Archaeal large subunit ribosomal RNA: a 264-nucleotide part of an RNA from Methanococcoides burtonii. The sequence is in the family's curated seed alignment.
[Rfam]
RNA sequence: GAGUGUAACUAAGUGGCGAUGGCUAACCUUUUAUCUGGGAAGCCGAAGCGAAAGCAACAUGCGUGCAACCUUUACGGGUGAGACGCGGCGUAUACAAGUGCGUGGAGUCACUAAGUUACGACCCGAAGCCGGGUGAUCUAGGCGUGGGCAGGUUGAAGCGUGGCGAAAGCUACGUGGAGGACCGCAAGCGGUAUUGAUCUGCAAAUCAUUCGUGUGACCUGCGUCUCGGAGUGAAAGGCUAAUCUAACCCGGCAUCAGCUGGUU
Numbered sequence: 001g002a003g004u005g006u007a008a009c010u011a012a013g014u015g016g017c018g019a020u021g022g023c024u025a026a027c028c029u030u031u032u033a034u035c036u037g038g039g040a041a042g043c044c045g046a047a048g049c050g051a052a053a054g055c056a057a058c059a060u061g062c063g064u065g066c067a068a069c070c071u072u073u074a075c076g077g078g079u080g081a082g083a084c085g086c087g088g089c090g091u092a093u094a095c096a097a098g099u100g101c102g103u104g105g106a107g108u109c110a111c112u113a114a115g116u117u118a119c120g121a122c123c124c125g126a127a128g129c130c131g132g133g134u135g136a137u138c139u140a141g142g143c144g145u146g147g148g149c150a151g152g153u154u155g156a157a158g159c160g161u162g163g164c165g166a167a168a169g170c171u172a173c174g175u176g177g178a179g180g181a182c183c184g185c186a187a188g189c190g191g192u193a194u195u196g197a198u199c200u201g202c203a204a205a206u207c208a209u210u211c212g213u214g215u216g217a218c219c220u221g222c223g224u225c226u227c228g229g230a231g232u233g234a235a236a237g238g239c240u241a242a243u244c245u246a247a248c249c250c251g252g253c254a255u256c257a258g259c260u261g262g263u264u
Base pairs, nucleotide, nucleotide: 005119006118007117008116009115010114012112013111014110015109016108017107021044022043023042024041027038028037048055049054061086062085063084064083068079069078070077071076089102090101091100092099122262123261125259129252130251131250132249133248134247138228140226141225142224143223144222145221146220147219148218149216151183152182153181154180158175159174160173161172162171163170164169188213189212190211191210193209194208196207197206230240231239232238